Rfam assigns this 70-nucleotide RNA from Mus musculus to the family "mir-199 microRNA precursor family". Gene Ontology terms of the family: miRNA-mediated post-transcriptional gene silencing and RISC complex. Rfam describes the family as follows. This family consists of the microRNA (miRNA) precursor mir-199 which appears to be specific to humans. Animal miRNAs are transcribed as ~70nt precursors and subsequently processed by the Dicer enzyme to give a ~22nt product. In this case the mature sequence comes from the 3' arm of the precursor. Rfam's curators put it in the seed alignment.
[Rfam]
RNA sequence: GCCAUCCCAGUGUUCAGACUACCUGUUCAGGAGGCUGGGACAUGUACAGUAGUCUGCACAUUGGUUAGGC
Numbered sequence: 001g002c003c004a005u006c007c008c009a010g011u012g013u014u015c016a017g018a019c020u021a022c023c024u025g026u027u028c029a030g031g032a033g034g035c036u037g038g039g040a041c042a043u044g045u046a047c048a049g050u051a052g053u054c055u056g057c058a059c060a061u062u063g064g065u066u067a068g069g070c
Stems, first nucleotide, its partner, number of pairs: 007064007015056007023049004028044002
A reference for the family is Ambros (2001), "microRNAs: tiny regulators with great potential", Cell.
NCBI's taxonomy places the organism under Eukaryota, Tetrapoda, Theria, Mus, Mus.